The family of this 60-nucleotide RNA is "eL15-Euryarchaeota ribosomal protein leader". A reference for the family is Eckert and Weinberg (2020), "Discovery of 20 novel ribosomal leader candidates in bacteria and archaea", BMC Microbiol. By type it is a cis-regulatory leader.
RNA sequence: CCUGUCUACGCAGGUCGGGAUGUGACUCCGCGGGCGGCGCUCGCGGGGUUGAACCAUACA
Numbered sequence: 001c002c003u004g005u006c007u008a009c010g011c012a013g014g015u016c017g018g019g020a021u022g023u024g025a026c027u028c029c030g031c032g033g034g035c036g037g038c039g040c041u042c043g044c045g046g047g048g049u050u051g052a053a054c055c056a057u058a059c060a
Base pairs, nucleotide, nucleotide: 001014002013003012004011005010017055018054024050025049026048027047028046029045030044031043032042033041034040